[Rfam]
Shown here is a 44-nucleotide sequence, a member of the family "L31-Actinobacteria ribosomal protein leader".
By type it is a cis-regulatory leader.
Rfam's curators put it in the seed alignment.
RNA sequence: UCGGUCCCCGGUUCACGUGAACGCCCGUUCGCGACCCGGCGGCC
Numbered sequence: 001u002c003g004g005u006c007c008c009c010g011g012u013u014c015a016c017g018u019g020a021a022c023g024c025c026c027g028u029u030c031g032c033g034a035c036c037c038g039g040c041g042g043c044c
Stems, first nucleotide, its partner, number of pairs: 003044002006042001008039004016033007